[Rfam]
RNA sequence: GGCGUCUGUGAUGUUCACAAUUACCUACAUUGUUUGAUCCUCAUGAAAGCAACACUGGCUGAGAUGCCC
Numbered sequence: 001g002g003c004g005u006c007u008g009u010g011a012u013g014u015u016c017a018c019a020a021u022u023a024c025c026u027a028c029a030u031u032g033u034u035u036g037a038u039c040c041u042c043a044u045g046a047a048a049g050c051a052a053c054a055c056u057g058g059c060u061g062a063g064a065u066g067c068c069c
Stems, first nucleotide, its partner, number of pairs: 001068001003066004

Shown here is a 69-nucleotide RNA sequence from Saimiri boliviensis, a member of the family "Small nucleolar RNA SNORD34". It scores 56 bits against the family's covariance model. The family has 14 seed sequences and 1,319 matches in Rfam 15.1. The base pairs follow the family's consensus structure, which was predicted with PFOLD. The family is grouped with related families in Rfam's "SNORD34 clan". The family's RNA type in Rfam is C/D-box small nucleolar RNA. The literature on the family includes a 2002 paper in Mol Cell Biol by Galardi et al., "Purified box C/D snoRNPs are able to reproduce site-specific 2'-O-methylation of target RNA in vitro".